A member of the RNA family "Small nucleolar RNA SNORA48" from Equus caballus, 133 nucleotides long. Its family is annotated with RNA processing and nucleolus in the Gene Ontology.
[Rfam]
RNA sequence: UGCCCUUGGAAUGGGCAAAGAGACACCUGAUUGGUGGUGUUGCUCUUAUAUCAGUCAGUUGUACAGUCCUUUGUUCAUCCUAGCUUGAUGACUGGGUUGGUGGCCAGAGCUGUUUCAUGCCUAGGGCGCAUAA
Numbered sequence: 001u002g003c004c005c006u007u008g009g010a011a012u013g014g015g016c017a018a019a020g021a022g023a024c025a026c027c028u029g030a031u032u033g034g035u036g037g038u039g040u041u042g043c044u045c046u047u048a049u050a051u052c053a054g055u056c057a058g059u060u061g062u063a064c065a066g067u068c069c070u071u072u073g074u075u076c077a078u079c080c081u082a083g084c085u086u087g088a089u090g091a092c093u094g095g096g097u098u099g100g101u102g103g104c105c106a107g108a109g110c111u112g113u114u115u116c117a118u119g120c121c122u123a124g125g126g127c128g129c130a131u132a133a
Stems, first nucleotide, its partner, number of pairs: 001063003006058003012053003018047003022041006072128005087121001089119001093117003098112002101109001
The family is grouped with related families in Rfam's "SNORA48 clan".
The snoRNA ACA 48 has been identified to guide pseudouridylation of the residue U3797 in the 28S rRNA subunit.
By type it is an H/ACA-box small nucleolar RNA.
Taxonomically the source falls in Equus (Eukaryota, Euteleostomi, Sarcopterygii, Mammalia).